[Rfam]
RNA sequence: CAAGGGUGCGUUAACAAUGAAUGAUUAUGAACCCCGCCAGAUCCGGAAGGAAGCAACGGUAAUAAUUUUUUCAGGUGUCGGCUGUCAUUCUCGGUG
Numbered sequence: 001c002a003a004g005g006g007u008g009c010g011u012u013a014a015c016a017a018u019g020a021a022u023g024a025u026u027a028u029g030a031a032c033c034c035c036g037c038c039a040g041a042u043c044c045g046g047a048a049g050g051a052a053g054c055a056a057c058g059g060u061a062a063u064a065a066u067u068u069u070u071u072c073a074g075g076u077g078u079c080g081g082c083u084g085u086c087a088u089u090c091u092c093g094g095u096g
Stems, first nucleotide, its partner, number of pairs: 004090005010082003014078001015075001018073004023067006034059003042051003